[Rfam]
RNA sequence: CCUGCGGCGGAAUGAAUUUUCCGAAAAUGGGUUGUUGCGCAGCGUGACCAUGCUGCGCGGGGGCGACUUACGUCCCCGCAUAUGAGCCUCGCGGCUCCCUGAGCGCCACGUCCCCAGAAGGGAUGUGGCGCUCGGGUC
Numbered sequence: 001c002c003u004g005c006g007g008c009g010g011a012a013u014g015a016a017u018u019u020u021c022c023g024a025a026a027a028u029g030g031g032u033u034g035u036u037g038c039g040c041a042g043c044g045u046g047a048c049c050a051u052g053c054u055g056c057g058c059g060g061g062g063g064c065g066a067c068u069u070a071c072g073u074c075c076c077c078g079c080a081u082a083u084g085a086g087c088c089u090c091g092c093g094g095c096u097c098c099c100u101g102a103g104c105g106c107c108a109c110g111u112c113c114c115c116a117g118a119a120g121g122g123a124u125g126u127g128g129c130g131c132u133c134g135g136g137u138c
Stems, first nucleotide, its partner, number of pairs: 008023005036078001037058009059077007084097005098135002101133014
Record summary
Rfam assigns this 138-nucleotide RNA from Paraburkholderia sp. BL10I2N1 to the family "sbcD RNA".